[Rfam]
RNA sequence: CUCAUUAAGGUGGGUGGAGUAGUAUAACAAUAAAGGGUGGUUGUUAUAGUACUCCACCUUCCCUGAUGGC
Numbered sequence: 001c002u003c004a005u006u007a008a009g010g011u012g013g014g015u016g017g018a019g020u021a022g023u024a025u026a027a028c029a030a031u032a033a034a035g036g037g038u039g040g041u042u043g044u045u046a047u048a049g050u051a052c053u054c055c056a057c058c059u060u061c062c063c064u065g066a067u068g069g070c
Stems, first nucleotide, its partner, number of pairs: 003068005009062002012059006019052003023048009033038001